Shown here is a 374-nucleotide sequence from Aspergillus fumigatus, a member of the family "RNase MRP".
The sequence is in the family's curated seed alignment.
Rfam's curators write: RNase MRP is an enzymatically active ribonucleoprotein with two distinct roles in eukaryotes. In mitochondria it plays a direct role in the initiation of mitochondrial DNA replication. In the nucleus it is involved in precursor rRNA processing, where it cleaves the internal transcribed spacer 1 between 18S and 5.8S rRNAs. Despite distinct functions, RNase MRP has been shown to be evolutionarily related to RNase P. Like eukaryotic RNase P, RNase MRP is not catalytically active without associated protein subunits.
[Rfam]
RNA sequence: UCCUCGCUCAAAGGAUCGCAUUCAAAGCUCACACACAGAGUACCUACCGGGUAUUCUCAUUCCUCUGCCAGGAGGAACCUAGCUUUGGGAGAAAGUCCCCGGACACCCUGCCCGAUCCUCGGAUCCGUGGCAGGCAAUGCGGAAACGCGCCGCCAUAGAAGCAAUUUGAUAGCGGCUAACUGCCCUACUCCCUCCCGGCGCCCGUGCCUAUAUCUGACGCUGUUCGCGGUGGAAACAAUGAUGGUAUAGCGGGGUGUCGGAGAGGGGUUGUUUCAUUGGGUUGCCUUUCGUCGUGUUUGGAUAGUCAUGCGAUUGCCCUGAUCCUCCUUUGGAGGCUUUUGGGUAACUCAAUGGGGCUCAUUCUUGAGGCGAGG
Numbered sequence: 001u002c003c004u005c006g007c008u009c010a011a012a013g014g015a016u017c018g019c020a021u022u023c024a025a026a027g028c029u030c031a032c033a034c035a036c037a038g039a040g041u042a043c044c045u046a047c048c049g050g051g052u053a054u055u056c057u058c059a060u061u062c063c064u065c066u067g068c069c070a071g072g073a074g075g076a077a078c079c080u081a082g083c084u085u086u087g088g089g090a091g092a093a094a095g096u097c098c099c100c101g102g103a104c105a106c107c108c109u110g111c112c113c114g115a116u117c118c119u120c121g122g123a124u125c126c127g128u129g130g131c132a133g134g135c136a137a138u139g140c141g142g143a144a145a146c147g148c149g150c151c152g153c154c155a156u157a158g159a160a161g162c163a164a165u166u167u168g169a170u171a172g173c174g175g176c177u178a179a180c181u182g183c184c185c186u187a188c189u190c191c192c193u194c195c196c197g198g199c200g201c202c203c204g205u206g207c208c209u210a211u212a213u214c215u216g217a218c219g220c221u222g223u224u225c226g227c228g229g230u231g232g233a234a235a236c237a238a239u240g241a242u243g244g245u246a247u248a249g250c251g252g253g254g255u256g257u258c259g260g261a262g263a264g265g266g267g268u269u270g271u272u273u274c275a276u277u278g279g280g281u282u283g284c285c286u287u288u289c290g291u292c293g294u295g296u297u298u299g300g301a302u303a304g305u306c307a308u309g310c311g312a313u314u315g316c317c318c319u320g321a322u323c324c325u326c327c328u329u330u331g332g333a334g335g336c337u338u339u340u341g342g343g344u345a346a347c348u349c350a351a352u353g354g355g356g357c358u359c360a361u362u363c364u365u366g367a368g369g370c371g372a373g374g
Stems, first nucleotide, its partner, number of pairs: 002374007009366003014314006022089001023087006038056007094358002097356004112127001114125004129285005135279001137277001142274003151267001153265002235245002238242001316343003320339002
Gene Ontology terms of the family: rRNA processing, ribonuclease MRP activity and ribonuclease MRP complex. The base pairs follow the family's consensus structure, which is taken from published work. Rfam 15.1 lists 3,510 matches to the family in 2,315 species.